Description:
Shown here is a 54-nucleotide sequence from Coregonus sp. 'balchen', a member of the family "UnaL2 LINE 3' element". It is annotated as a cis-regulatory element. Rfam's curators write: The eel long interspersed element (LINE) UnaL2 and its partner short interspersed element (SINE) share a conserved 3' tail containing a stem-loop that is critical for their retrotransposition. Presumably, the first step of retrotransposition is the recognition of their 3' tails by UnaL2-encoded reverse transcriptase. The solution structure of a 17-nucleotide RNA derived from the 3' tail of UnaL2 was determined by NMR. On this family, see Baba et al., RNA 2004: "Solution structure of an RNA stem-loop derived from the 3' conserved region of eel LINE UnaL2". NCBI's taxonomy places the organism under Eukaryota, Teleostomi, Actinopteri, Neopterygii, Coregonus.
RNA sequence: CCGAAUUGCUCCUGUAAGUCACUCUGGAUAAGAGUGUCUGCAAAAUGACAAAAA
Numbered sequence: 001c002c003g004a005a006u007u008g009c010u011c012c013u014g015u016a017a018g019u020c021a022c023u024c025u026g027g028a029u030a031a032g033a034g035u036g037u038c039u040g041c042a043a044a045a046u047g048a049c050a051a052a053a054a
Base pairs, nucleotide, nucleotide: 013043014041015040016039020036021035022034023033024032025031